[Rfam]
RNA sequence: GCGCGAAGGUCCCAGCAGAGAGGGAAGUACUCCGUCGGUGAGACCUCUCUAACGAUCUUGAUUUAAAAUUCCUUCGCAGAUUGAGACUGGCCAAAUCAAAGAGCCCUUUAGAUUUCUUCUUCUUUAUGGGCUUUGAACCCCUUGGCUAUAGGCUG
Numbered sequence: 001g002c003g004c005g006a007a008g009g010u011c012c013c014a015g016c017a018g019a020g021a022g023g024g025a026a027g028u029a030c031u032c033c034g035u036c037g038g039u040g041a042g043a044c045c046u047c048u049c050u051a052a053c054g055a056u057c058u059u060g061a062u063u064u065a066a067a068a069u070u071c072c073u074u075c076g077c078a079g080a081u082u083g084a085g086a087c088u089g090g091c092c093a094a095a096u097c098a099a100a101g102a103g104c105c106c107u108u109u110a111g112a113u114u115u116c117u118u119c120u121u122c123u124u125u126a127u128g129g130g131c132u133u134u135g136a137a138c139c140c141c142u143u144g145g146c147u148a149u150a151g152g153c154u155g
Stems, first nucleotide, its partner, number of pairs: 003077007011020001013018001026048002030042003090146005102132002105129002107126001110123003
A member of the RNA family "Small nucleolar RNA snoR145" from Genlisea aurea, 155 nucleotides long.